Acido-Lenti-1 RNA: a 46-nucleotide RNA sequence from Phycisphaerae bacterium RAS1. Rfam classes the family as a small RNA. Rfam 15.1 lists 2,607 matches to the family in 171 species. The organism belongs to Phycisphaerae, within Bacteria.
[Rfam]
RNA sequence: CCCACGGCUUGCGCCGUGGGCUGUACUCUUUCGCCGCUCCGCGGCU
Numbered sequence: 001c002c003c004a005c006g007g008c009u010u011g012c013g014c015c016g017u018g019g020g021c022u023g024u025a026c027u028c029u030u031u032c033g034c035c036g037c038u039c040c041g042c043g044g045c046u
Stems, first nucleotide, its partner, number of pairs: 001020008033045005